Rfam assigns this 249-nucleotide sequence from Thrips palmi to the family "Arthropod 7SK RNA".
The family's RNA type in Rfam is non-coding RNA gene.
For this family Rfam cites "Arthropod 7SK RNA" (Gruber et al., Mol Biol Evol, 2008).
A search with the family's covariance model found it, with a score of 70 bits.
Clan: 7SK clan.
RNA sequence: GGAAGUGUGUGUCACUAGUGAUGGCACAAGCUGAACAUUGAUCCCUGCAGUAGGCCGAUCUGCUCAGUAACCGUGUUGUCACUCCGUCCCGGCUCGGACUCACGAUGCCCCUCCGUUCGUGGAGGGCCGCACGUUGGAGACUGAGUUCGGCAGCUUGAAUCCCCGCGUUCCGUCCGGAAUACUCGGUUCAAAAUUGGUAAAUAAGCGCUUCCACAUACAGGCACUGAGGUACAGUAUGCCAUCUUUUUG
Number, nucleotide and partner (000 for none) at each position: 001g212002g211003a210004a209005g208006u207007g206008u205009g000010u000011g000012u000013c000014a000015c000016u000017a000018g082019u081020g080021a079022u078023g000024g000025c000026a000027c000028a000029a000030g000031c067032u066033g065034a000035a000036c062037a061038u000039u000040g060041a059042u058043c057044c000045c054046u053047g000048c000049a000050g000051u000052a000053g046054g045055c000056c000057g043058a042059u041060c040061u037062g036063c000064u000065c033066a032067g031068u000069a000070a000071c000072c000073g000074u000075g000076u000077u000078g022079u021080c020081a019082c018083u000084c000085c000086g000087u000088c000089c000090c000091g000092g000093c000094u000095c000096g000097g000098a000099c000100u000101c000102a000103c000104g000105a000106u000107g000108c000109c000110c000111c000112u000113c000114c000115g000116u000117u000118c000119g000120u000121g000122g000123a000124g000125g000126g000127c000128c000129g000130c000131a000132c000133g000134u000135u000136g000137g000138a000139g000140a000141c000142u000143g000144a000145g000146u000147u000148c000149g000150g000151c000152a000153g000154c000155u000156u000157g000158a000159a000160u000161c000162c000163c000164c000165g000166c000167g000168u000169u000170c000171c000172g000173u000174c000175c000176g000177g000178a000179a000180u000181a000182c000183u000184c000185g000186g000187u000188u000189c000190a000191a000192a000193a000194u000195u000196g000197g000198u000199a000200a000201a000202u000203a000204a000205g008206c007207g006208c005209u004210u003211c002212c001213a000214c000215a000216u000217a000218c000219a000220g240221g239222c238223a235224c234225u233226g232227a000228g000229g000230u000231a000232c226233a225234g224235u223236a000237u000238g222239c221240c220241a000242u000243c000244u000245u000246u000247u000248u000249g000